[Rfam]
RNA sequence: AGUUCGGGCGGGCGCGGGGUCAACCACCGGUAAGUACCGGGGGUGGAAAGUACCCUUCCAAACCCCCUCCGUCCCCCGCCCCCGAAGCUCACCCCAAAGCUUGACACCGCAAAAGUGCCCUGCCCUAUGCUCGCGCCACCACACAAAAAGUCGGCCCCCGCCGGGACACGCAAUCCCGAACGAGGGCCUGACCACCUAGGAAGACUUGACCCUUCCCG
Numbered sequence: 001a002g003u004u005c006g007g008g009c010g011g012g013c014g015c016g017g018g019g020u021c022a023a024c025c026a027c028c029g030g031u032a033a034g035u036a037c038c039g040g041g042g043g044u045g046g047a048a049a050g051u052a053c054c055c056u057u058c059c060a061a062a063c064c065c066c067c068u069c070c071g072u073c074c075c076c077c078g079c080c081c082c083c084g085a086a087g088c089u090c091a092c093c094c095c096a097a098a099g100c101u102u103g104a105c106a107c108c109g110c111a112a113a114a115g116u117g118c119c120c121u122g123c124c125c126u127a128u129g130c131u132c133g134c135g136c137c138a139c140c141a142c143a144c145a146a147a148a149a150g151u152c153g154g155c156c157c158c159c160g161c162c163g164g165g166a167c168a169c170g171c172a173a174u175c176c177c178g179a180a181c182g183a184g185g186g187c188c189u190g191a192c193c194a195c196c197u198a199g200g201a202a203g204a205c206u207u208g209a210c211c212c213u214u215c216c217c218g
Stems, first nucleotide, its partner, number of pairs: 007196002010193001016082004095103003153188005159182002163177004199216005
A member of the RNA family "Streptomyces sRNA 4677" from Streptomyces acidiscabies, 218 nucleotides long.
Lineage of the source: Bacteria > Actinomycetota > Actinomycetes > Streptomycetaceae > Streptomyces.
A reference for the family is Hindra et al. (2014), "Complex intra-operonic dynamics mediated by a small RNA in Streptomyces coelicolor", PLoS One.
Rfam 15.1 lists 563 matches to the family in 285 species.
By type it is a small RNA.
The base pairs follow the family's consensus structure.
Located in the intergenic region between anti-sigma factor SCO4677 gene and a putative regulatory protein gene SCO4676. scr4677 expression requires the SCO4677 activity and scr4677 sRNA itself seem to affect the levels of the SCO4676-associated transcripts.
It scores 75 bits against the family's covariance model.